[Rfam]
RNA sequence: AAACUUUCUUUUAAAAAAAUUUUUUUUUAGAGAUCUCUAACUUCAUGCUAAGAGCAGUUUGGAGAGACUUUGACAGAACAGGUCAGCAUAAUAUCUGCAACUUCCAUUCGAUUUUCCUAUAAUA
Numbered sequence: 001a002a003a004c005u006u007u008c009u010u011u012u013a014a015a016a017a018a019a020u021u022u023u024u025u026u027u028u029a030g031a032g033a034u035c036u037c038u039a040a041c042u043u044c045a046u047g048c049u050a051a052g053a054g055c056a057g058u059u060u061g062g063a064g065a066g067a068c069u070u071u072g073a074c075a076g077a078a079c080a081g082g083u084c085a086g087c088a089u090a091a092u093a094u095c096u097g098c099a100a101c102u103u104c105c106a107u108u109c110g111a112u113u114u115u116c117c118u119a120u121a122a123u124a
Stems, first nucleotide, its partner, number of pairs: 007031002013026005061117006076104002079097004

The family of this 124-nucleotide RNA from Ovis aries is "Small nucleolar RNA SNORA44". By type it is an H/ACA-box small nucleolar RNA. Its family is annotated with RNA processing and nucleolus in the Gene Ontology. The literature on the family includes a 2001 paper in EMBO J by Huttenhofer et al., "RNomics: an experimental approach that identifies 201 candidates for novel, small, non-messenger RNAs in mouse". Pairs were carried over by alignment from the consensus structure, which was predicted with PFOLD. About the family: ACA44 is a member of the H/ACA class of snoRNA that guide the sites of modification of uridines to pseudouridines.